Notes: The family of this 112-nucleotide RNA from Virgibacillus sp. SK37 is "BsrF". It is annotated as a small RNA. For this family Rfam cites "Novel small RNA-encoding genes in the intergenic regions of Bacillus subtilis" (Saito et al., Gene, 2008). The family's consensus secondary structure was predicted with WAR. Taxonomically the source falls in Virgibacillus (Bacteria, Bacillota, Bacilli, Bacillaceae).
[Rfam]
RNA sequence: GCGAUGAGCUGAUUUGCAUAAGACGAGGAACAAAGAAAUACAUGUGAAUGUGAACACAUGGUCCCUCGCCGCAAAUUUUCGAAAAGGCACCUGUGCAUUUUAUGCAUAGGUG
Numbered sequence: 001g002c003g004a005u006g007a008g009c010u011g012a013u014u015u016g017c018a019u020a021a022g023a024c025g026a027g028g029a030a031c032a033a034a035g036a037a038a039u040a041c042a043u044g045u046g047a048a049u050g051u052g053a054a055c056a057c058a059u060g061g062u063c064c065c066u067c068g069c070c071g072c073a074a075a076u077u078u079u080c081g082a083a084a085a086g087g088c089a090c091c092u093g094u095g096c097a098u099u100u101u102a103u104g105c106a107u108a109g110g111u112g
Stems, first nucleotide, its partner, number of pairs: 014074004024068005030062002041060002044057003088112009